The record is an 83-nucleotide sequence from Crocodylus porosus, which matches "Mammalian CPEB3 ribozyme" in Rfam.
The match comes from Rfam's covariance-model search (46 bits).
NCBI's taxonomy places the organism under Eukaryota, Vertebrata, Teleostomi, Longirostres, Crocodylus.

RNA sequence: CUGCAGUCACAGGGGGUUAUAGCAGAAGCGUUCAAGUUGCGAUCCCUACCAGGUAGUACCUGCUAAUACUUGCAAAUUCUGUU
Numbered sequence: 001c002u003g004c005a006g007u008c009a010c011a012g013g014g015g016g017u018u019a020u021a022g023c024a025g026a027a028g029c030g031u032u033c034a035a036g037u038u039g040c041g042a043u044c045c046c047u048a049c050c051a052g053g054u055a056g057u058a059c060c061u062g063c064u065a066a067u068a069c070u071u072g073c074a075a076a077u078u079c080u081g082u083u
Base pairs, nucleotide, nucleotide: 013046014045015044016043017042018041021083022082023081024080025079026078027077028040029039030038050072051071052070053069054068055067